[Rfam]
RNA sequence: GGGUUCGUGGCGCAAUGGAUAACGCGUCUGACUACGGAUCAGAAGAUUCCAGGUUCGAAUCCUGGCGGACUCG
Numbered sequence: 001g002g003g004u005u006c007g008u009g010g011c012g013c014a015a016u017g018g019a020u021a022a023c024g025c026g027u028c029u030g031a032c033u034a035c036g037g038a039u040c041a042g043a044a045g046a047u048u049c050c051a052g053g054u055u056c057g058a059a060u061c062c063u064g065g066c067g068g069a070c071u072c073g
Base pairs, nucleotide, nucleotide: 001072002071003070004069005068006067007066010025011024012023027043028042029041030040031039049065050064051063052062053061
A member of the RNA family "tRNA" from Varroa destructor, 73 nucleotides long. The match comes from Rfam's covariance-model search (60 bits). The family's RNA type in Rfam is transfer RNA.